RNA sequence: UGACAGUGGUGAUGAUGAUGACAAUGCGUCUCCUCCCUGAACACAGGAUGUGGGUUCAUAAGUCACUACCUCAUCUGAACUGGCU
Number, nucleotide and partner (000 for none) at each position: 001u000002g084003a000004c082005a081006g080007u079008g000009g000010u000011g000012a000013u000014g000015a000016u000017g000018a000019u000020g000021a000022c000023a000024a000025u000026g000027c000028g000029u000030c000031u000032c000033c000034u000035c000036c000037c000038u000039g000040a000041a000042c000043a000044c000045a000046g000047g000048a000049u000050g000051u000052g000053g000054g000055u000056u000057c000058a000059u000060a000061a000062g000063u000064c000065a000066c000067u000068a000069c000070c000071u000072c000073a000074u000075c000076u000077g000078a000079a007080c006081u005082g004083g000084c002085u000
This 85-nucleotide sequence from Conger conger belongs to the Rfam family "Small nucleolar RNA SNORD11B". Rfam 15.1 lists 733 matches to the family in 632 species. The literature on the family includes a 2006 paper in Nucleic Acids Res by Yang et al., "snoSeeker: an advanced computational package for screening of guide and orphan snoRNA genes in the human genome". The family's consensus secondary structure was predicted with WAR. Its Rfam clan is "SNORD11 clan". By type it is a C/D-box small nucleolar RNA.